[Rfam]
RNA sequence: CAUAUGGUACUUAUCAGCGGUUCUUUUGAAACAAGAUAAGCAGCGAUAUGGCUUCUUACGAGGU
Numbered sequence: 001c002a003u004a005u006g007g008u009a010c011u012u013a014u015c016a017g018c019g020g021u022u023c024u025u026u027u028g029a030a031a032c033a034a035g036a037u038a039a040g041c042a043g044c045g046a047u048a049u050g051g052c053u054u055c056u057u058a059c060g061a062g063g064u
Base pairs, nucleotide, nucleotide: 001050002049003048004047005046007044008043011039012038013037014036015035
Description
A member of the RNA family "L31-Gammaproteobacteria ribosomal protein leader" from Pseudohaemophilus sputorum, 64 nucleotides long. Rfam classes the family as a cis-regulatory leader. The sequence is in the family's curated seed alignment. Clan: Ribosomal Protein L31 Leader clan.